[Rfam]
RNA sequence: AUCCCGACAGAGCAAACCAUCGGUAACGGUGGGACGCAAAGUCACCGGCCCGCGUCAUUCUUGCGCCAUUUUCCCAAUCGGAAAGGUGAUAAAAAAUGACCGAAAGCGCGGGCAGCGGGACUGCCGAA
Number, nucleotide and partner (000 for none) at each position: 001a000002u000003c000004c000005c000006g000007a000008c000009a000010g000011a000012g037013c036014a000015a000016a000017c032018c031019a030020u029021c028022g027023g000024u000025a000026a000027c022028g021029g020030u019031g018032g017033g000034a000035c000036g013037c012038a000039a000040a122041g121042u120043c119044a000045c118046c117047g116048g113049c112050c111051c110052g109053c108054g107055u000056c000057a000058u000059u000060c000061u000062u000063g000064c000065g000066c000067c000068a000069u000070u000071u000072u000073c000074c000075c000076a000077a000078u000079c000080g000081g000082a000083a000084a000085g000086g000087u000088g000089a000090u000091a000092a000093a000094a000095a000096a000097u000098g000099a000100c000101c000102g000103a000104a000105a000106g000107c054108g053109c052110g051111g050112g049113c048114a000115g000116c047117g046118g045119g043120a042121c041122u040123g000124c000125c000126g000127a000128a000
A member of the RNA family "c-di-GMP-I riboswitch aptamer" from Aestuariispira insulae, 128 nucleotides long. GEMM was predicted in a large-scale screen for bacterial structured RNA regulatory elements. The family's consensus secondary structure is taken from published work. The source organism's lineage runs through Bacteria, Pseudomonadati, Rhodospirillales, Aestuariispiraceae and Aestuariispira. Its family is annotated with cyclic-di-GMP binding in the Gene Ontology.